[Rfam]
RNA: Group II catalytic intron D1-D4-1
RNA sequence: CGCGACGGCGAGCAAUCGCCAGCGUGACUGAUCAGGAAUCAGCAGAGGCCAUAGUAGCGACACCGAAAGGUAACGCGAAGGGC
Numbered sequence: 001c002g003c004g005a006c007g008g009c010g011a012g013c014a015a016u017c018g019c020c021a022g023c024g025u026g027a028c029u030g031a032u033c034a035g036g037a038a039u040c041a042g043c044a045g046a047g048g049c050c051a052u053a054g055u056a057g058c059g060a061c062a063c064c065g066a067a068a069g070g071u072a073a074c075g076c077g078a079a080g081g082g083c
Base pairs, nucleotide, nucleotide: 001026002025004023007020008019009018010017011016039046040045048083049082050081057076058075059074062071